RNA sequence: ACCCAUCAAAGGGGUAGUUCCCCAUCCAGGAGCUACUUUACCAUAUUCCGAAUUC
Numbered sequence: 001a002c003c004c005a006u007c008a009a010a011g012g013g014g015u016a017g018u019u020c021c022c023c024a025u026c027c028a029g030g031a032g033c034u035a036c037u038u039u040a041c042c043a044u045a046u047u048c049c050g051a052a053u054u055c
Stems, first nucleotide, its partner, number of pairs: 011039011
Dot-bracket structure: ..........(((((((((((.......)))))))))))................
Shown here is a 55-nucleotide sequence from Papaver somniferum, a member of the family "Plastid-psbN 5UTR RNA". Rfam classes the family as a cis-regulatory element. The family has 63 seed sequences and 2,345 matches in Rfam 15.1. Plastid psbN is a non-coding RNA (ncRNA) recognised in plastids. It was reported as a conserved 11 stem-loop in the prime untranslated region (5UTR) of psbN genes. It has been reported that the motif is retained in a subset of mature transcripts in barley, which can suggests a possible role in transcript alternative 5 prime processing.